This 61-nucleotide sequence belongs to the Rfam family "Plastid-psbA-4 3UTR RNA".
About the family: Plastid psbA-4 is a non-coding RNA (ncRNA) present in plastids. It was identified in inverted repeat sequences in the 3 prime untranslate region (3UTR) of photosystem II quinone-binding protein (psbA).
It is annotated as a cis-regulatory element.
[Rfam]
RNA sequence: AAGGUAAAGGGGCAAUAACCAACUUCUUGUUCUCUCAAGAAAUGGGUUAUUGCCCCUUUAC
Numbered sequence: 001a002a003g004g005u006a007a008a009g010g011g012g013c014a015a016u017a018a019c020c021a022a023c024u025u026c027u028u029g030u031u032c033u034c035u036c037a038a039g040a041a042a043u044g045g046g047u048u049a050u051u052g053c054c055c056c057u058u059u060a061c
Stems, first nucleotide, its partner, number of pairs: 006059012022043001024041006